[Rfam]
Nucleotides: 069
Base pairs, nucleotide, nucleotide: 015025016024017023032059033058037054038053039052041050042049043048
Number, partner (000 for none) and nucleotide at each position: 001000c002000u003000u004000g005000a006000u007000c008000g009000a010000c011000c012000c013000c014000a015025g016024c017023c018000a019000c020000a021000g022000c023017g024016g025015c026000a027000g028000g029000u030000c031000g032059c033058g034000g035000u036000c037054c038053u039052g040000g041050c042049c043048g044000u045000a046000g047000g048043u049042g050041g051000c052039c053038a054037g055000c056000a057000g058033u059032g060000c061000c062000u063000g064000c065000a066000c067000c068000u069000c